[Rfam]
RNA sequence: ACACGUUCUCAGGGCGGGGUGAAACUCCCCACCGGCGGUAUCUGCCUUCACGGCAGGAGCCCGCGAGCGCUUGGUUGGCCAGCCCAUGGCCGAGCAGGGUCAGCAGAUCUGGUGCGAUGCCAGAGCCGACGGUCACAGUCCGGAUGAAAGAGAGCGUGC
Numbered sequence: 001a002c003a004c005g006u007u008c009u010c011a012g013g014g015c016g017g018g019g020u021g022a023a024a025c026u027c028c029c030c031a032c033c034g035g036c037g038g039u040a041u042c043u044g045c046c047u048u049c050a051c052g053g054c055a056g057g058a059g060c061c062c063g064c065g066a067g068c069g070c071u072u073g074g075u076u077g078g079c080c081a082g083c084c085c086a087u088g089g090c091c092g093a094g095c096a097g098g099g100u101c102a103g104c105a106g107a108u109c110u111g112g113u114g115c116g117a118u119g120c121c122a123g124a125g126c127c128g129a130c131g132g133u134c135a136c137a138g139u140c141c142g143g144a145u146g147a148a149a150g151a152g153a154g155c156g157u158g159c
Stems, first nucleotide, its partner, number of pairs: 003157008017029003031139002033128002035064004059126002067104002108124005130142003

Shown here is a 159-nucleotide sequence from Ottowia flava, a member of the family "FMN riboswitch aptamer (RFN element)". It scores 110 bits against the family's covariance model.